[Rfam]
RNA sequence: CCAGCUACUGAUUGUCCAAACGCAAUUCUUGUGAAAUUUCAAACCCAACCCGAGAAUUGUGCCUGGACAUCUGUUGCUGG
Dot-bracket structure: .((((.(..(((.(((((..(((((((((((...................)))))))))))..))))))))..).)))).
Numbered sequence: 001c002c003a004g005c006u007a008c009u010g011a012u013u014g015u016c017c018a019a020a021c022g023c024a025a026u027u028c029u030u031g032u033g034a035a036a037u038u039u040c041a042a043a044c045c046c047a048a049c050c051c052g053a054g055a056a057u058u059g060u061g062c063c064u065g066g067a068c069a070u071c072u073g074u075u076g077c078u079g080g
Stems, first nucleotide, its partner, number of pairs: 002079004007074001010071003014068005021061011